[Rfam]
RNA sequence: GUCGGCUAUGGAGACAUGUGCCCUACCACGUUAGGUGGGAAGAUAGUGGGGACCCUGUGUGCUAUUGCGGGGGUGUUAACCAUUGCGCUCCCUGUCCCGGUCAUCGUCUCCAAC
Dot-bracket structure: ((.((..((((.(((..(.((...............((.(........((...........))..........).))................)).)..))).))))..)).))
Rfam assigns this 114-nucleotide RNA sequence from Terrapene triunguis to the family "Potassium channel RNA editing signal". Rfam links the family to the GO term adenosine to inosine editing.